[Rfam]
The record is a 148-nucleotide RNA from Phyllostomus discolor, which matches "Small nucleolar RNA SNORA12" in Rfam. The family's consensus secondary structure was predicted with RNAalifold. Rfam 15.1 lists 571 matches to the family in 378 species. Rfam classes the family as an H/ACA-box small nucleolar RNA. Rfam links the family to the GO terms RNA processing and nucleolus. The match comes from Rfam's covariance-model search (137 bits).
RNA sequence: AAUUGUGGUGGUUUUCUUUUGGCACAUUUGUUAAGUUUUCAAAUGGGCCUGACUCUGCCACAGAUAUUGUACAGGAGCCGGCAGAGGCUUGAUGACCAAGUGACCACUCUCUAGCCUUCCCAGCGUGUGGAAGUUGGCUCCCACAUGU
Number, nucleotide and partner (000 for none) at each position: 001a000002a000003u000004u000005g061006u060007g059008g058009u057010g056011g055012u000013u000014u000015u000016c000017u000018u000019u000020u000021g049022g048023c047024a000025c045026a044027u043028u042029u041030g040031u000032u000033a000034a000035g000036u000037u000038u000039u000040c030041a029042a028043a027044u026045g025046g000047g023048c022049c021050u000051g000052a000053c000054u000055c011056u010057g009058c008059c007060a006061c005062a000063g000064a000065u000066a000067u000068u000069g000070u000071a000072c000073a000074g141075g140076a139077g138078c137079c136080g089081g088082c087083a000084g000085a000086g000087g082088c081089u080090u000091g000092a000093u000094g000095a000096c000097c000098a000099a000100g000101u000102g000103a000104c000105c000106a000107c000108u131109c130110u129111c000112u000113a000114g000115c000116c000117u000118u000119c000120c000121c000122a000123g000124c000125g000126u000127g000128u000129g110130g109131a108132a000133g000134u000135u000136g079137g078138c077139u076140c075141c074142c000143a000144c000145a000146u000147g000148u000